The family of this 140-nucleotide RNA from Paenibacillus ginsengarvi is "Group II catalytic intron D1-D4-4". Rfam 15.1 lists 840 matches to the family in 506 species. A search with the family's covariance model found it, with a score of 88 bits. Gene Ontology term of the family: Group II intron splicing. Pairs were carried over by alignment from the consensus structure. About the family: Group II introns are found in rRNA, tRNA and mRNA of organelles in fungi, plants and protists, and also in mRNA in bacteria.

RNA sequence: UUACUGAUGAAAGUUCAGUCGGGGUAGGGACCAAGCCGCCCCGUAGCUAGCAGGCAGACGUCGGCGAAAUCCGGCGGCUGAAGCCCUGCGAAAAGUCAUGCAGAUCGGGUGAUGAAGCAAAUCUGCAGGCCGUAACGAAA
Numbered sequence: 001u002u003a004c005u006g007a008u009g010a011a012a013g014u015u016c017a018g019u020c021g022g023g024g025u026a027g028g029g030a031c032c033a034a035g036c037c038g039c040c041c042c043g044u045a046g047c048u049a050g051c052a053g054g055c056a057g058a059c060g061u062c063g064g065c066g067a068a069a070u071c072c073g074g075c076g077g078c079u080g081a082a083g084c085c086c087u088g089c090g091a092a093a094a095g096u097c098a099u100g101c102a103g104a105u106c107g108g109g110u111g112a113u114g115a116a117g118c119a120a121a122u123c124u125g126c127a128g129g130c131c132g133u134a135a136c137g138a139a140a
Base pairs, nucleotide, nucleotide: 020043021042022041023040024039050089051088052087053086054085055080056079057078059076060075064071099111100110101109117133118132